[Rfam]
RNA sequence: GUAAGCUUUCUGGGGGCAAUGGCAGGAGCAUUCACAUUGGAACCCCUGUUAAGUAAUACCUGGUAACACCUACUAAUUCUGCU
Numbered sequence: 001g002u003a004a005g006c007u008u009u010c011u012g013g014g015g016g017c018a019a020u021g022g023c024a025g026g027a028g029c030a031u032u033c034a035c036a037u038u039g040g041a042a043c044c045c046c047u048g049u050u051a052a053g054u055a056a057u058a059c060c061u062g063g064u065a066a067c068a069c070c071u072a073c074u075a076a077u078u079c080u081g082c083u
Base pairs, nucleotide, nucleotide: 013046014045015044016043021083022082023081024080025079026078027077029039030038050072051071053069054068
Rfam assigns this 83-nucleotide RNA from Crocodylus porosus to the family "Mammalian CPEB3 ribozyme". The match comes from Rfam's covariance-model search (36 bits). Pairs were carried over by alignment from the consensus structure, which is taken from published work.